ALIL pseudoknot: a 117-nucleotide sequence from Ancylobacter tetraedralis.
Gene Ontology term of the family: positive regulation of translational frameshifting.
It scores 95 bits against the family's covariance model.
By type it is a cis-regulatory element.
RNA sequence: GGCGUAUUUUGCCCAAGCGGAGUUCGACCGCCGACACCGGUCAUGAUCGCCUUCAUCGACGAUCACCGCGGUGCCUAGGGGGUCGAGCCGAUCUGCAAGGUCUUGCCGAUCGCCCGG
Dot-bracket structure: ................((((.......))))................................................(((......((.((.((((....)))).)).)))))..